[Rfam]
Record summary
This 80-nucleotide RNA from Senna tora belongs to the Rfam family "Small nucleolar RNA R21". Taxonomically the source falls in Senna (Eukaryota, Embryophyta, eudicotyledons, Caesalpinioideae).
RNA sequence: CAUCCCUGUGAUGAUGAUUUGUUUUUAUGUUAAAAGUAGUGGACUGAAUCUUAUUGAAGAGAAAUGGAAUCUGAGGGGUG
Numbered sequence: 001c002a003u004c005c006c007u008g009u010g011a012u013g014a015u016g017a018u019u020u021g022u023u024u025u026u027a028u029g030u031u032a033a034a035a036g037u038a039g040u041g042g043a044c045u046g047a048a049u050c051u052u053a054u055u056g057a058a059g060a061g062a063a064a065u066g067g068a069a070u071c072u073g074a075g076g077g078g079u080g
Stems, first nucleotide, its partner, number of pairs: 001080006
Dot-bracket structure: ((((((....................................................................))))))
The family has 6 seed sequences and 472 matches in Rfam 15.1. Pairs were carried over by alignment from the consensus structure, which was predicted with PFOLD. The family's RNA type in Rfam is C/D-box small nucleolar RNA.